A member of the RNA family "Small nucleolar RNA snoR14" from Gossypium trilobum, 79 nucleotides long. For this family Rfam cites "Multiple snoRNA gene clusters from Arabidopsis" (Brown et al., RNA, 2001). Its family is annotated with nucleolus and RNA processing in the Gene Ontology.
[Rfam]
RNA sequence: GCGAUUUGAUGAUAGAAACUCGUAAUCCACUGAUCCAAUAAUUUGAUGUUACAUUGAAGUUCCGACAGGUUCUGAUCGC
Numbered sequence: 001g002c003g004a005u006u007u008g009a010u011g012a013u014a015g016a017a018a019c020u021c022g023u024a025a026u027c028c029a030c031u032g033a034u035c036c037a038a039u040a041a042u043u044u045g046a047u048g049u050u051a052c053a054u055u056g057a058a059g060u061u062c063c064g065a066c067a068g069g070u071u072c073u074g075a076u077c078g079c
Stems, first nucleotide, its partner, number of pairs: 001079006